This 274-nucleotide sequence from Oryza rufipogon belongs to the Rfam family "MIR821 microRNA precursor family".
[Rfam]
RNA sequence: GAUUUCAACUAAAAAAGUCAUCAACAACGAGUUGUAUAACUCAUCGAUAUCUAUAACUUUUAUUUUGGUCAUUUAUUCAUCCGAUAAAGUGGUAGUAACAUUGUUCACAAAAUUUACACAUCUCUUAUAUGGUUUUAUAAACUAUAAGAGAUGUAUGUAAAUUUUGUGAACAAUGUUACUACCACUUUAUCGGAUGAAUAAAUGACCAAAAUAAAAGUUAUAGAUAUUGAUGAUUUAUACAACUUUGUUGUUGAUGACUUUUUCAUUUGAAGUC
Numbered sequence: 001g002a003u004u005u006c007a008a009c010u011a012a013a014a015a016a017g018u019c020a021u022c023a024a025c026a027a028c029g030a031g032u033u034g035u036a037u038a039a040c041u042c043a044u045c046g047a048u049a050u051c052u053a054u055a056a057c058u059u060u061u062a063u064u065u066u067g068g069u070c071a072u073u074u075a076u077u078c079a080u081c082c083g084a085u086a087a088a089g090u091g092g093u094a095g096u097a098a099c100a101u102u103g104u105u106c107a108c109a110a111a112a113u114u115u116a117c118a119c120a121u122c123u124c125u126u127a128u129a130u131g132g133u134u135u136u137a138u139a140a141a142c143u144a145u146a147a148g149a150g151a152u153g154u155a156u157g158u159a160a161a162u163u164u165u166g167u168g169a170a171c172a173a174u175g176u177u178a179c180u181a182c183c184a185c186u187u188u189a190u191c192g193g194a195u196g197a198a199u200a201a202a203u204g205a206c207c208a209a210a211a212u213a214a215a216a217g218u219u220a221u222a223g224a225u226a227u228u229g230a231u232g233a234u235u236u237a238u239a240c241a242a243c244u245u246u247g248u249u250g251u252u253g254a255u256g257a258c259u260u261u262u263u264c265a266u267u268u269g270a271a272g273u274c
Stems, first nucleotide, its partner, number of pairs: 014261008023252002026249002029245011041233001043231010054220013068206007076198005082192010093181006100174012113161002116158003120154002130144006
Source information
Its family is annotated with miRNA-mediated post-transcriptional gene silencing and RISC complex in the Gene Ontology. The literature on the family includes a 2006 paper in FEBS Lett by Luo et al., "Rice embryogenic calli express a unique set of microRNAs, suggesting regulatory roles of microRNAs in plant post-embryogenic development".